[Rfam]
RNA sequence: UAGCUGUCACUCCAGACCAUAUCCUAAGCUCCUGAUAAAUUGAGAGGUAAACGUUUGCCUUCUCUCACCCUAAUCUCGCAAAUUGAAUUGCGAUACGCCGGGAAAACGACACAGGACGUCAGGAGGGGGUCAGUGGCCGGUACGCUUAUAAAUUUAGCGUGGAAUUUUGUCCUAUCUUGAUGAAAAGGGGAAGCGCAAAAACGGUUAUGAGCCUAAAUCCAGGAAGAUUUUUGAGCGAAACUGUGUAAAAAUGAGCAAGCUCACUUUUCAUGUGGGGAUUAAAAGGAGAAAAAUUGAUGAAUACCGAUCUUAAGUUUUCGUUAACGACCACAAUUAUCGUGCUGGGUUUGAUUGUUGCGGCAAGUUUUACGGCUAUUCUGCACUGAUUC
Numbered sequence: 001u002a003g004c005u006g007u008c009a010c011u012c013c014a015g016a017c018c019a020u021a022u023c024c025u026a027a028g029c030u031c032c033u034g035a036u037a038a039a040u041u042g043a044g045a046g047g048u049a050a051a052c053g054u055u056u057g058c059c060u061u062c063u064c065u066c067a068c069c070c071u072a073a074u075c076u077c078g079c080a081a082a083u084u085g086a087a088u089u090g091c092g093a094u095a096c097g098c099c100g101g102g103a104a105a106a107c108g109a110c111a112c113a114g115g116a117c118g119u120c121a122g123g124a125g126g127g128g129g130u131c132a133g134u135g136g137c138c139g140g141u142a143c144g145c146u147u148a149u150a151a152a153u154u155u156a157g158c159g160u161g162g163a164a165u166u167u168u169g170u171c172c173u174a175u176c177u178u179g180a181u182g183a184a185a186a187g188g189g190g191a192a193g194c195g196c197a198a199a200a201a202c203g204g205u206u207a208u209g210a211g212c213c214u215a216a217a218u219c220c221a222g223g224a225a226g227a228u229u230u231u232u233g234a235g236c237g238a239a240a241c242u243g244u245g246u247a248a249a250a251a252u253g254a255g256c257a258a259g260c261u262c263a264c265u266u267u268u269c270a271u272g273u274g275g276g277g278a279u280u281a282a283a284a285g286g287a288g289a290a291a292a293a294u295u296g297a298u299g300a301a302u303a304c305c306g307a308u309c310u311u312a313a314g315u316u317u318u319c320g321u322u323a324a325c326g327a328c329c330a331c332a333a334u335u336a337u338c339g340u341g342c343u344g345g346g347u348u349u350g351a352u353u354g355u356u357g358c359g360g361c362a363a364g365u366u367u368u369a370c371g372g373c374u375a376u377u378c379u380g381c382a383c384u385g386a387u388u389c
Stems, first nucleotide, its partner, number of pairs: 015131004020126001023028001030124006045060006076093005098114001100112001143195004149163001152160002170188002175183002237305001265284001267282001270279002
The family of this 389-nucleotide RNA from Enterobacter sp. 638 is "Enterobacterial sRNA STnc550".